[Rfam]
RNA: MIR159 microRNA precursor family
RNA sequence: GAAGAAGAGGAAGAGCUCCUUGAAGUUCAAUGGAGGGUUUAGCAGGGUGAAGUAAAGCUGCUAAGCUAUGGAUCCCAUAAGCCUUAUCAAAUUCAAUAUAAUUGAUGAUAAGGUUUUUUUUAUGGAUGCCAUAUCUCAGGAGCUUUCACUUACCCCUUUAAUGGCUUCACUCUUCUUUGGAUUGAAGGGAGCUCUUCAUCUCUCCAUC
Numbered sequence: 001g002a003a004g005a006a007g008a009g010g011a012a013g014a015g016c017u018c019c020u021u022g023a024a025g026u027u028c029a030a031u032g033g034a035g036g037g038u039u040u041a042g043c044a045g046g047g048u049g050a051a052g053u054a055a056a057g058c059u060g061c062u063a064a065g066c067u068a069u070g071g072a073u074c075c076c077a078u079a080a081g082c083c084u085u086a087u088c089a090a091a092u093u094c095a096a097u098a099u100a101a102u103u104g105a106u107g108a109u110a111a112g113g114u115u116u117u118u119u120u121u122a123u124g125g126a127u128g129c130c131a132u133a134u135c136u137c138a139g140g141a142g143c144u145u146u147c148a149c150u151u152a153c154c155c156c157u158u159u160a161a162u163g164g165c166u167u168c169a170c171u172c173u174u175c176u177u178u179g180g181a182u183u184g185a186a187g188g189g190a191g192c193u194c195u196u197c198a199u200c201u202c203u204c205c206a207u208c
Base pairs, nucleotide, nucleotide: 013194014193015192016191017190018189019188020187024183025182026181027180028179029178036171058142059141061139062138067133068132069131070130075125076124077123